[Rfam]
RNA sequence: CGGGCGGUGUACUCCCAGAUGGCGUCGCCGUCGAGCAGCGCCUGGUCACCGAAGUAGGCGCCGUCGGCGAGGACGCCGAGAACCGCGUCGUCCCCGUAGGGCCCGGUGCCGAUCUUCUCGACCUUGCCGUGAGCCAGCAGGUAUACCGCGUCGGCCUGGCUGCCGAACGAGGCGAUCACCUCGCCCGGGCCGAACUCCCGCUGCUCACAGCGCUGGGCGAGUUCCGAGAGCACCUCCUCGUCCUCGUACGACCGCAGGGCCGGCAGCUCGCCCAGCUCCGCGGGGAUGACCUCGACGCGGUCGCCGGUCUUCACGAACGUCACCCGGCCGUCGCCGACGGCGAAGGUCAGGCGCCGGUUCACCCGGUACGUGCCGCCCUGGACGUCCACCCAGGGAAGAGUGCGCAGCAGCCAGCGCGAGCUGAUCUCCUGCAUCUGAGGUACGGACUUGGUCGUGGUGGCCAGGUUCCGCGCGGCCGCCGUGCCGAGGCUCUGCUGCGGCCUGG
Number, nucleotide and partner (000 for none) at each position: 001c000002g000003g000004g000005c000006g390007g389008u388009g387010u000011a385012c384013u000014c000015c381016c380017a000018g328019a000020u000021g325022g324023c000024g000025u322026c000027g320028c319029c000030g000031u316032c315033g000034a000035g000036c000037a311038g310039c000040g308041c307042c306043u000044g000045g305046u000047c303048a301049c300050c299051g298052a000053a000054g233055u232056a000057g000058g000059c228060g000061c226062c000063g224064u000065c111066g110067g109068c108069g000070a000071g000072g000073a000074c000075g103076c000077c000078g000079a000080g000081a000082a097083c096084c000085g094086c000087g000088u000089c000090g000091u000092c000093c000094c085095c000096g083097u082098a000099g000100g000101g000102c000103c075104c000105g000106g000107u000108g068109c067110c066111g065112a000113u000114c000115u000116u000117c221118u220119c219120g218121a000122c217123c216124u000125u000126g213127c212128c000129g000130u209131g206132a205133g204134c000135c203136a202137g201138c000139a000140g198141g197142u000143a196144u000145a000146c000147c000148g000149c192150g191151u000152c000153g000154g000155c188156c187157u000158g185159g184160c183161u178162g177163c000164c000165g000166a000167a000168c000169g000170a000171g000172g000173c000174g000175a000176u000177c162178a161179c000180c000181u000182c000183g160184c159185c158186c000187g156188g155189g000190c000191c150192g149193a000194a000195c000196u143197c141198c140199c000200g000201c137202u136203g135204c133205u132206c131207a000208c000209a130210g000211c000212g127213c126214u000215g000216g123217g122218c120219g119220a118221g117222u000223u000224c063225c000226g061227a000228g059229a000230g000231c000232a055233c054234c000235u295236c294237c000238u000239c000240g290241u289242c288243c000244u286245c285246g000247u000248a000249c283250g000251a000252c280253c000254g278255c000256a277257g276258g000259g000260c000261c270262g269263g000264c000265a000266g000267c000268u000269c262270g261271c000272c000273c000274a000275g000276c257277u256278c254279c000280g252281c000282g000283g249284g000285g245286a244287u000288g242289a241290c240291c000292u000293c000294g236295a235296c000297g000298c051299g050300g049301u048302c000303g047304c000305c045306g042307g041308u040309c000310u038311u037312c000313a000314c000315g032316a031317a000318c000319g028320u027321c000322a025323c000324c022325c021326g000327g000328c018329c342330g341331u340332c339333g000334c000335c000336g000337a000338c000339g332340g331341c330342g329343a000344a000345g000346g000347u000348c000349a000350g000351g379352c000353g377354c000355c375356g374357g373358u000359u000360c372361a371362c370363c000364c000365g000366g000367u000368a000369c000370g362371u361372g360373c357374c356375g355376c000377c353378c000379u351380g016381g015382a000383c000384g012385u011386c000387c009388a008389c007390c006391c431392a430393g429394g428395g427396a000397a425398g000399a000400g422401u000402g000403c418404g417405c416406a000407g415408c000409a000410g000411c000412c000413a000414g000415c407416g405417c404418g403419a000420g000421c000422u400423g000424a000425u397426c000427u395428c394429c393430u392431g391432c000433a000434u000435c000436u000437g476438a000439g000440g473441u000442a000443c470444g469445g468446a467447c465448u464449u463450g462451g461452u460453c000454g000455u000456g000457g000458u000459g000460g452461c451462c450463a449464g448465g447466u000467u446468c445469c444470g443471c000472g000473c440474g000475g000476c437477c504478g503479c000480c499481g498482u497483g000484c000485c000486g000487a496488g495489g000490c000491u000492c000493u000494g000495c488496u487497g482498c481499g480500g000501c000502c000503u478504g477505g000
The record is a 505-nucleotide RNA from Streptomyces griseicoloratus, which matches "Saccharopolyspora sRNA 350" in Rfam. The match comes from Rfam's covariance-model search (167 bits). The family's consensus secondary structure was predicted with RNAfold. The family has 2 seed sequences and 1,170 matches in Rfam 15.1.